This 134-nucleotide RNA sequence from Nothoprocta perdicaria belongs to the Rfam family "Small nucleolar RNA SNORA17". A search with the family's covariance model found it, with a score of 90 bits. The family's consensus secondary structure was predicted with RNAalifold. Rfam classes the family as an H/ACA-box small nucleolar RNA. Lineage of the source: Eukaryota > Euteleostomi > Coelurosauria > Tinamiformes > Nothoprocta. Rfam describes the family as follows. snoRNA ACA 17 belongs to the H/ACA family of snoRNAs and is predicted to guide pseudouridylation of the 28S rRNA at positions U4659 and U4598. It shares the same host gene together with ACA43. NB This family has a high threshold value to exclude a large number of closely related sequences that do not appear to have conserved H and ACA boxes, and may be pseudogenes. Its family is annotated with nucleolus and RNA processing in the Gene Ontology.
RNA sequence: CCUGCCACUAGAGGCGUUGCAAAGGUGGCUGCUGUGACAUCUUUGUGUCAUUAGGUGGCAGAGAGAAACAGACUGUUCUACGCUCGUUUGCUCUGCGACCUGUGAGCAUUCAGAGUGAUUAAUAGCCUGACACU
Numbered sequence: 001c002c003u004g005c006c007a008c009u010a011g012a013g014g015c016g017u018u019g020c021a022a023a024g025g026u027g028g029c030u031g032c033u034g035u036g037a038c039a040u041c042u043u044u045g046u047g048u049c050a051u052u053a054g055g056u057g058g059c060a061g062a063g064a065g066a067a068a069c070a071g072a073c074u075g076u077u078c079u080a081c082g083c084u085c086g087u088u089u090g091c092u093c094u095g096c097g098a099c100c101u102g103u104g105a106g107c108a109u110u111c112a113g114a115g116u117g118a119u120u121a122a123u124a125g126c127c128u129g130a131c132a133c134u
Stems, first nucleotide, its partner, number of pairs: 002061005008054004013049003019046004024041004029036001069129003073125004081117002084114002089108005